[Rfam]
RNA sequence: AGAGUUAGCUAGACAACCGCUGCUUUACUAUUAUUAAUAACAAUUAUACUUAGUAAUAAAGGAGAGGAAAGUCCGGGCUCCAUAGGGUAAGGUGCCAGAUAACAUCUGGGAGGUGUAAGCCUACGUUAAUGCAACAGAAAAUAAACCGCUAAUAUUAUAAAAGUAUAUGUAAGGGUGAAAAGGUGCGGUAAGAGCGCACCGCACAACUGGUAACAGUUUGUGGCAAGGUAAAUGCCACCUGGAGCAAGGCCAAAUAGGAGUUCAUAUAAUGUGGCCCGCAUAGAACUCGGGUAGGCUGCUUGAGUCAAUACGUAAUUAUUGAUCUAGAUGAAUGGUUGUCCACGACAGAACCCGGCUUAUAGGCUAACUCUAAAA
Numbered sequence: 001a002g003a004g005u006u007a008g009c010u011a012g013a014c015a016a017c018c019g020c021u022g023c024u025u026u027a028c029u030a031u032u033a034u035u036a037a038u039a040a041c042a043a044u045u046a047u048a049c050u051u052a053g054u055a056a057u058a059a060a061g062g063a064g065a066g067g068a069a070a071g072u073c074c075g076g077g078c079u080c081c082a083u084a085g086g087g088u089a090a091g092g093u094g095c096c097a098g099a100u101a102a103c104a105u106c107u108g109g110g111a112g113g114u115g116u117a118a119g120c121c122u123a124c125g126u127u128a129a130u131g132c133a134a135c136a137g138a139a140a141a142u143a144a145a146c147c148g149c150u151a152a153u154a155u156u157a158u159a160a161a162a163g164u165a166u167a168u169g170u171a172a173g174g175g176u177g178a179a180a181a182g183g184u185g186c187g188g189u190a191a192g193a194g195c196g197c198a199c200c201g202c203a204c205a206a207c208u209g210g211u212a213a214c215a216g217u218u219u220g221u222g223g224c225a226a227g228g229u230a231a232a233u234g235c236c237a238c239c240u241g242g243a244g245c246a247a248g249g250c251c252a253a254a255u256a257g258g259a260g261u262u263c264a265u266a267u268a269a270u271g272u273g274g275c276c277c278g279c280a281u282a283g284a285a286c287u288c289g290g291g292u293a294g295g296c297u298g299c300u301u302g303a304g305u306c307a308a309u310a311c312g313u314a315a316u317u318a319u320u321g322a323u324c325u326a327g328a329u330g331a332a333u334g335g336u337u338g339u340c341c342a343c344g345a346c347a348g349a350a351c352c353c354g355g356c357u358u359a360u361a362g363g364c365u366a367a368c369u370c371u372a373a374a375a
Stems, first nucleotide, its partner, number of pairs: 001371010011360001012340007020064002023061005069358003073355005078244004085277004090240005095109005110124001111122004125235002129233002131229002146174002148170002152166005182200006201224001202222005207216003248297004258288006269281004304323007

The record is a 375-nucleotide sequence from Candidatus Arsenophonus lipoptenae, which matches "Bacterial RNase P class A" in Rfam. The source organism's lineage runs through Bacteria, Pseudomonadota, Gammaproteobacteria, Morganellaceae and Arsenophonus. Pairs were carried over by alignment from the consensus structure, which is taken from published work. Rfam describes the family as follows. Ribonuclease P (RNase P) is a ubiquitous endoribonuclease, found in archaea, bacteria and eukarya as well as chloroplasts and mitochondria. By type it is a ribozyme.